This 81-nucleotide RNA from Beta vulgaris belongs to the Rfam family "Small nucleolar RNA SNORD34". The source organism's lineage runs through Eukaryota, Streptophytina, Tracheophyta, Caryophyllales and Beta vulgaris. The base pairs follow the family's consensus structure, which was predicted with PFOLD. snoRNA U34 is found in intron 5 of the ribosomal protein L13a gene in humans. It is annotated as a C/D-box small nucleolar RNA. Clan: SNORD34 clan.

[Rfam]
RNA sequence: GAGGCCUGUGAUGAUCUGUCCAUUAAUUUUGCCUACAUUGUUUGAGUUUACAAUGAAAGGAAUAUGGUGUCUGAGGCUUUC
Number, nucleotide and partner (000 for none) at each position: 001g080002a000003g078004g077005c076006c075007u000008g000009u000010g000011a000012u000013g000014a000015u000016c000017u000018g000019u000020c000021c000022a000023u000024u000025a000026a000027u000028u000029u000030u000031g000032c000033c000034u000035a000036c000037a000038u000039u000040g000041u000042u000043u000044g000045a000046g000047u000048u000049u000050a000051c000052a000053a000054u000055g000056a000057a000058a000059g000060g000061a000062a000063u000064a000065u000066g000067g000068u000069g000070u000071c000072u000073g000074a000075g006076g005077c004078u003079u000080u001081c000